[Rfam]
RNA sequence: UAAAUUAUAAUCAUUUUGGACUGAGUCAUCAUCCUGAUUGAAUAUCUUACACCAGGUUAACCAUAAAUACCCAUAGAAUAUGAGUAUU
Numbered sequence: 001u002a003a004a005u006u007a008u009a010a011u012c013a014u015u016u017u018g019g020a021c022u023g024a025g026u027c028a029u030c031a032u033c034c035u036g037a038u039u040g041a042a043u044a045u046c047u048u049a050c051a052c053c054a055g056g057u058u059a060a061c062c063a064u065a066a067a068u069a070c071c072c073a074u075a076g077a078a079u080a081u082g083a084g085u086a087u088u
Base pairs, nucleotide, nucleotide: 003088004087006086007085
Rfam assigns this 88-nucleotide RNA from Crypturellus undulatus to the family "Small nucleolar RNA snoR8a". The literature on the family includes a 2001 paper in RNA by Brown et al., "Multiple snoRNA gene clusters from Arabidopsis". The family's RNA type in Rfam is C/D-box small nucleolar RNA.